[Rfam]
RNA: U7 small nuclear RNA
Organism: Piliocolobus tephrosceles
RNA sequence: GAGUGUUACAGCUCUUAUGGAAUUUGUCUAGCAGAUUUUAUGGUCUUCACAGGAAACUUCCCC
Numbered sequence: 001g002a003g004u005g006u007u008a009c010a011g012c013u014c015u016u017a018u019g020g021a022a023u024u025u026g027u028c029u030a031g032c033a034g035a036u037u038u039u040a041u042g043g044u045c046u047u048c049a050c051a052g053g054a055a056a057c058u059u060c061c062c063c
Stems, first nucleotide, its partner, number of pairs: 034060002037056003041052001043050002